[Rfam]
RNA sequence: CCGAGCUAGGGGUACAAGUCCUGCAGUAUUGCGUUCCUCUGGACCUAAGCGACGACCUGAAAGGGUAGCGACGACGCUCGGCGUUAGUGGGGAGAGUAUCAGACGUGAUGUCCCCUCUAAC
Numbered sequence: 001c002c003g004a005g006c007u008a009g010g011g012g013u014a015c016a017a018g019u020c021c022u023g024c025a026g027u028a029u030u031g032c033g034u035u036c037c038u039c040u041g042g043a044c045c046u047a048a049g050c051g052a053c054g055a056c057c058u059g060a061a062a063g064g065g066u067a068g069c070g071a072c073g074a075c076g077c078u079c080g081g082c083g084u085u086a087g088u089g090g091g092g093a094g095a096g097u098a099u100c101a102g103a104c105g106u107g108a109u110g111u112c113c114c115c116u117c118u119a120a121c
Base pairs, nucleotide, nucleotide: 001081002080003079004078005077006076007074009072010046011045012044013043015041016040022033023032024031025030049069050068057065058064083121084120085119086118087117089115090114091113092112093111099108100107101106
About this RNA: The family of this 121-nucleotide sequence is "Flavobacterium-1 RNA". By type it is a small RNA. Pairs were carried over by alignment from the consensus structure, which is taken from published work.